Rfam assigns this 143-nucleotide RNA to the family "radC RNA".
It is one of the family's seed sequences.
[Rfam]
RNA sequence: UACAAAGGGCGUGGUUCGCUGUCGUUGACAACCCAGCCCAGGUAGCUUGAACCUUCAAGGCUACGCCACGUUCGUGGUGGUUUACCCAAGUGCGAUCAGCGUUCGGAAGCUCGCGCGGUUACCGCUUCAGCGGUGAUGAAUGC
Numbered sequence: 001u002a003c004a005a006a007g008g009g010c011g012u013g014g015u016u017c018g019c020u021g022u023c024g025u026u027g028a029c030a031a032c033c034c035a036g037c038c039c040a041g042g043u044a045g046c047u048u049g050a051a052c053c054u055u056c057a058a059g060g061c062u063a064c065g066c067c068a069c070g071u072u073c074g075u076g077g078u079g080g081u082u083u084a085c086c087c088a089a090g091u092g093c094g095a096u097c098a099g100c101g102u103u104c105g106g107a108a109g110c111u112c113g114c115g116c117g118g119u120u121a122c123c124g125c126u127u128c129a130g131c132g133g134u135g136a137u138g139a140a141u142g143c
Stems, first nucleotide, its partner, number of pairs: 012035003018032001020030004042064006050082004065078005112142002118137008